[Rfam]
The family of this 88-nucleotide RNA sequence from Gorilla gorilla is "Y RNA". For this family Rfam cites "5'-YRNA fragments derived by processing of transcripts from specific YRNA genes and pseudogenes are abundant in human serum and plasma" (Dhahbi et al., Physiol Genomics, 2013). The match comes from Rfam's covariance-model search (51 bits).
RNA sequence: AGCUGGUCUGAGUGCAGUGUUUACAACUCUUGAUUACAGAUUUCUUUGUUCCUUCUCCAUCCCCACUGCUUCACUUGACUAGUCUUAA
Numbered sequence: 001a002g003c004u005g006g007u008c009u010g011a012g013u014g015c016a017g018u019g020u021u022u023a024c025a026a027c028u029c030u031u032g033a034u035u036a037c038a039g040a041u042u043u044c045u046u047u048g049u050u051c052c053u054u055c056u057c058c059a060u061c062c063c064c065a066c067u068g069c070u071u072c073a074c075u076u077g078a079c080u081a082g083u084c085u086u087a088a
Stems, first nucleotide, its partner, number of pairs: 002083007010076002014072001016067004025050003
About this RNA: The base pairs follow the family's consensus structure, which is taken from published work.